Nucleotides: 120
Base pairs, nucleotide, nucleotide: 001023002022003021004020005019006018007017008016009015010014028043029042031040032039033038066120067119069117070116071115072114073113074112075109077107083104084103085102086101087100088099089098090097
Number, partner (000 for none) and nucleotide at each position: 001023a002022a003021c004020c005019a006018c007017c008016a009015g010014c011000u012000a013000g014010g015009c016008u017007g018006g019005u020004g021003g022002u023001u024000c025000a026000a027000a028043a029042g030000a031040g032039c033038c034000u035000u036000c037000u038033g039032g040031c041000g042029u043028u044000g045000c046000g047000u048000c049000c050000u051000c052000g053000g054000a055000u056000a057000a058000a059000a060000a061000g062000a063000a064000a065000u066120c067119c068000c069117u070116u071115g072114a073113u074112u075109a076000c077107u078000g079000u080000u081000g082000a083104u084103a085102u086101g087100c088099g089098g090097u091000c092000u093000g094000c095000c096000a097090a098089c099088u100087g101086c102085a103084u104083a105000a106000c107077a108000a109075u110000a111000a112074a113073a114072u115071c116070a117069a118000a119067g120066g